rseX Hfq binding RNA: an 88-nucleotide sequence from Escherichia albertii. The family's consensus secondary structure was predicted with RNAalifold.
[Rfam]
RNA sequence: UUUUUUGUUUUCUGUGUCAUGAUACUUACGUUAUUAGCCUUUUAUCGUCUUAUUUCAUUUUUUGGCCGGCAUGAUGCCGGCUUUUUUU
Numbered sequence: 001u002u003u004u005u006u007g008u009u010u011u012c013u014g015u016g017u018c019a020u021g022a023u024a025c026u027u028a029c030g031u032u033a034u035u036a037g038c039c040u041u042u043u044a045u046c047g048u049c050u051u052a053u054u055u056c057a058u059u060u061u062u063u064g065g066c067c068g069g070c071a072u073g074a075u076g077c078c079g080g081c082u083u084u085u086u087u088u
Stems, first nucleotide, its partner, number of pairs: 014038002019034005065081006

For this family Rfam cites "Down-regulation of porins by a small RNA bypasses the essentiality of the regulated intramembrane proteolysis protease RseP in Escherichia coli" (Douchin et al., J Biol Chem, 2006). The family's RNA type in Rfam is small RNA.